[Rfam]
RNA: Plant signal recognition particle RNA
Organism: Nicotiana tabacum
RNA sequence: GCCGAGCUCAGUAACAUGGGCUUGUAACCCAAGUGGGGGCAACAAAUUGGUGGAAUGUUGGGCCGCUUCAUACGGUAGGGCUUAGUGGGCUAAUGUCUGGCCUGCCCUAUCCAAGCUCAGAGUUGGGUCACGUGGCCCAAGUUAAAGCAUGGGUUGCUGGGCUCCUAAAGUGGGGCGGAACGCGCGAGGCUGGCUUCACAGAGCAGCGAAUAGCUCCCUCUUUGUGCAGUGGAAGGAUAACGGGCCGGUGUCUCUAGGCCCAACAAAUAUCGGAUGGGCUGCGCCAAUUAGACCAUCACUUUU
Numbered sequence: 001g002c003c004g005a006g007c008u009c010a011g012u013a014a015c016a017u018g019g020g021c022u023u024g025u026a027a028c029c030c031a032a033g034u035g036g037g038g039g040c041a042a043c044a045a046a047u048u049g050g051u052g053g054a055a056u057g058u059u060g061g062g063c064c065g066c067u068u069c070a071u072a073c074g075g076u077a078g079g080g081c082u083u084a085g086u087g088g089g090c091u092a093a094u095g096u097c098u099g100g101c102c103u104g105c106c107c108u109a110u111c112c113a114a115g116c117u118c119a120g121a122g123u124u125g126g127g128u129c130a131c132g133u134g135g136c137c138c139a140a141g142u143u144a145a146a147g148c149a150u151g152g153g154u155u156g157c158u159g160g161g162c163u164c165c166u167a168a169a170g171u172g173g174g175g176c177g178g179a180a181c182g183c184g185c186g187a188g189g190c191u192g193g194c195u196u197c198a199c200a201g202a203g204c205a206g207c208g209a210a211u212a213g214c215u216c217c218c219u220c221u222u223u224g225u226g227c228a229g230u231g232g233a234a235g236g237a238u239a240a241c242g243g244g245c246c247g248g249u250g251u252c253u254c255u256a257g258g259c260c261c262a263a264c265a266a267a268u269a270u271c272g273g274a275u276g277g278g279c280u281g282c283g284c285c286a287a288u289u290a291g292a293c294c295a296u297c298a299c300u301u302u303u
Stems, first nucleotide, its partner, number of pairs: 001040003004023007028037003044302003048298006056290002058287003062282002065279002068277004073272005078261008087253003091250002097248008106236002110233004115227002118224005125164005132157008141148002165170001172217005183208003190201003